[Rfam]
RNA sequence: GGCCGGGAGUGGGCUAAUACAAGACCUGUUCGCAGGGAAUACGCCCGCCGUUCGUUGACGGUUCUUAGCUCCCGGCCUUUUUUGC
Numbered sequence: 001g002g003c004c005g006g007g008a009g010u011g012g013g014c015u016a017a018u019a020c021a022a023g024a025c026c027u028g029u030u031c032g033c034a035g036g037g038a039a040u041a042c043g044c045c046c047g048c049c050g051u052u053c054g055u056u057g058a059c060g061g062u063u064c065u066u067a068g069c070u071c072c073c074g075g076c077c078u079u080u081u082u083u084g085c
Base pairs, nucleotide, nucleotide: 001077002076003075004074005073006072007071008070009069012045013044014043015041016040025036026035027034047062048061049060050059051058